[Rfam]
RNA sequence: AAAAAAGUUUUCUAGGGUUCCGCAGCAUCGCUGGCCUGGUCCGAGAGAAGACACACAGCUCAUGCUGUGACACGGAGGGACAAAAGCCUGGGAGAA
Numbered sequence: 001a002a003a004a005a006a007g008u009u010u011u012c013u014a015g016g017g018u019u020c021c022g023c024a025g026c027a028u029c030g031c032u033g034g035c036c037u038g039g040u041c042c043g044a045g046a047g048a049a050g051a052c053a054c055a056c057a058g059c060u061c062a063u064g065c066u067g068u069g070a071c072a073c074g075g076a077g078g079g080a081c082a083a084a085a086g087c088c089u090g091g092g093a094g095a096a
Stems, first nucleotide, its partner, number of pairs: 007052006015042002020039002022036001023033004054069006071091001073094001077089003
RNA: Guanidine-I riboswitch aptamer
Organism: Planococcus rifietoensis